The record is a 126-nucleotide sequence from Saimiri boliviensis, which matches "U4atac minor spliceosomal RNA" in Rfam. Rfam 15.1 lists 1,648 matches to the family in 818 species. Rfam classes the family as a spliceosomal small nuclear RNA. U4atac is an essential component of the minor U12-type spliceosome complex which is required for removal of the rarer class of eukaryotic introns (AT-AC, U12-type).

RNA sequence: UCGCUCCUGGGAUUGGGGUUGUGCUACUGUCCAAUGAGCGCAUAGUGAGGGCAGUACUGCUAAUGCCUAAACAGCACGCUCGCAUCAACUAAAGCUCUGCUUUACGUUGGUGCAAUUUUUGGAAAA
Number, nucleotide and partner (000 for none) at each position: 001u000002c000003g000004c000005u000006c018007c017008u016009g000010g000011g000012a000013u000014u000015g000016g008017g007018g006019u000020u000021g060022u059023g058024c000025u000026a055027c054028u053029g052030u051031c050032c049033a000034a000035u000036g000037a000038g046039c045040g000041c000042a000043u000044a000045g039046u038047g000048a000049g032050g031051g030052c029053a028054g027055u026056a000057c000058u023059g022060c021061u000062a000063a000064u000065g000066c000067c000068u000069a000070a000071a000072c000073a000074g000075c000076a000077c000078g000079c000080u000081c000082g113083c112084a111085u110086c109087a108088a000089c000090u104091a103092a102093a101094g100095c099096u000097c000098u000099g095100c094101u093102u092103u091104a090105c000106g000107u000108u087109g086110g085111u084112g083113c082114a000115a000116u000117u000118u000119u000120u000121g000122g000123a000124a000125a000126a000